[Rfam]
Small nucleolar RNA SNORD17: a 249-nucleotide sequence from Tricholaema leucomelas. Gene Ontology terms of the family: RNA processing and nucleolus. The literature on the family includes a 2001 paper in EMBO J by Huttenhofer et al., "RNomics: an experimental approach that identifies 201 candidates for novel, small, non-messenger RNAs in mouse". From the family's description: The snoRNA HBI-43 belongs to the C/D family of snoRNAs, guiding 2'O-ribose methylation at position U3797 of the 28S rRNA. Pseudouridylation in position U3797 is predicted to be guided by the H/ACA snoRNA ACA48. Pairs were carried over by alignment from the consensus structure, which was predicted with RNAalifold. The organism belongs to Tricholaema lacrymosa, within Eukaryota.
RNA sequence: GUGAAGUGAUGACAAAGUUUAUCCAUUCCCUGAGUGCAGUGGUGCUGUCCUCCUGCAGCACCUAGAUUCCUGUUCUAGGGUCUGGGUGCUGUGCAGCCUCCAGAGCCUCUUCCAGUCUCCCAGUGUCCUACUGGGGGCUGCUGUGGUCUGUGGCUGGCUGCCUGCAGGAGUGAUGUGGUGCCAGCAGGAUUGGAGAGCCUCUCUGGGGGGUCUCCAUCCUGGCUGAGAUGAGGGAUGAUGUCUGAUCAC
Numbered sequence: 001g002u003g004a005a006g007u008g009a010u011g012a013c014a015a016a017g018u019u020u021a022u023c024c025a026u027u028c029c030c031u032g033a034g035u036g037c038a039g040u041g042g043u044g045c046u047g048u049c050c051u052c053c054u055g056c057a058g059c060a061c062c063u064a065g066a067u068u069c070c071u072g073u074u075c076u077a078g079g080g081u082c083u084g085g086g087u088g089c090u091g092u093g094c095a096g097c098c099u100c101c102a103g104a105g106c107c108u109c110u111u112c113c114a115g116u117c118u119c120c121c122a123g124u125g126u127c128c129u130a131c132u133g134g135g136g137g138c139u140g141c142u143g144u145g146g147u148c149u150g151u152g153g154c155u156g157g158c159u160g161c162c163u164g165c166a167g168g169a170g171u172g173a174u175g176u177g178g179u180g181c182c183a184g185c186a187g188g189a190u191u192g193g194a195g196a197g198c199c200u201c202u203c204u205g206g207g208g209g210g211u212c213u214c215c216a217u218c219c220u221g222g223c224u225g226a227g228a229u230g231a232g233g234g235a236u237g238a239u240g241u242c243u244g245a246u247c248a249c
Stems, first nucleotide, its partner, number of pairs: 010248003017241002020238001023234002026232003030227002034223002039185002042182001043180006050172001051169007059088007068080004093161006106146002108143001113140005119135007187219002191216006198209002